[Rfam]
RNA sequence: GAAGAUCACCACAAUGGUAAUUUAAUUUAGUAUGAGAGGAACCAUUGAUUCAGAUAAUUAGUUUUUGCAGUUGUCUGAUCAGACAGUGCUGUGAAGCUAUCAUCUGCUGGAUUAUGGCUGAAUGCCUCUAAGUCAGAAUCUGUACUGGAAUGCAGCAAUGUUGCUCUGCAUAUUGUAGUUGAAUAUGAAUAGAUUUACAGACUCUAAACCUCAGCAGAUCAGCAACAGCUUCUGGAAAGAGACUCUCAGAUGCCAGCUGAUGAAUUAUAAUAUCACCAUGUGUGGGGAUAGAUUCUCUGCAGAUGACUGAAAUAACCAAGUAAGUUAUGUAAGCAGUCAAGUAAUCUAGUUGUUAUGAGUUGCUGAGUGUCAGUCUGAUUCUUGGCUUAAUUUGU
Numbered sequence: 001g002a003a004g005a006u007c008a009c010c011a012c013a014a015u016g017g018u019a020a021u022u023u024a025a026u027u028u029a030g031u032a033u034g035a036g037a038g039g040a041a042c043c044a045u046u047g048a049u050u051c052a053g054a055u056a057a058u059u060a061g062u063u064u065u066u067g068c069a070g071u072u073g074u075c076u077g078a079u080c081a082g083a084c085a086g087u088g089c090u091g092u093g094a095a096g097c098u099a100u101c102a103u104c105u106g107c108u109g110g111a112u113u114a115u116g117g118c119u120g121a122a123u124g125c126c127u128c129u130a131a132g133u134c135a136g137a138a139u140c141u142g143u144a145c146u147g148g149a150a151u152g153c154a155g156c157a158a159u160g161u162u163g164c165u166c167u168g169c170a171u172a173u174u175g176u177a178g179u180u181g182a183a184u185a186u187g188a189a190u191a192g193a194u195u196u197a198c199a200g201a202c203u204c205u206a207a208a209c210c211u212c213a214g215c216a217g218a219u220c221a222g223c224a225a226c227a228g229c230u231u232c233u234g235g236a237a238a239g240a241g242a243c244u245c246u247c248a249g250a251u252g253c254c255a256g257c258u259g260a261u262g263a264a265u266u267a268u269a270a271u272a273u274c275a276c277c278a279u280g281u282g283u284g285g286g287g288a289u290a291g292a293u294u295c296u297c298u299g300c301a302g303a304u305g306a307c308u309g310a311a312a313u314a315a316c317c318a319a320g321u322a323a324g325u326u327a328u329g330u331a332a333g334c335a336g337u338c339a340a341g342u343a344a345u346c347u348a349g350u351u352g353u354u355a356u357g358a359g360u361u362g363c364u365g366a367g368u369g370u371c372a373g374u375c376u377g378a379u380u381c382u383u384g385g386c387u388u389a390a391u392u393u394g395u
Base pairs, nucleotide, nucleotide: 005159006158009155012152015147016146017145018144020050022048023047024046025045026044051106052105053104054103055102059099060098061097066093067092068091069090070089071086072085073084074083075082076081108142109141110140115135116134117133118132119131165286166285167284168283169282170281171280290393291392292391293390294389296310297309299307316385317384318383319382320381323376324375326369327368333363334362335361336360338359341356342355343354344353345352
RNA: Eukaryotic large subunit ribosomal RNA, nucleotides 3573 to 3967
Organism: Coccidioides posadasii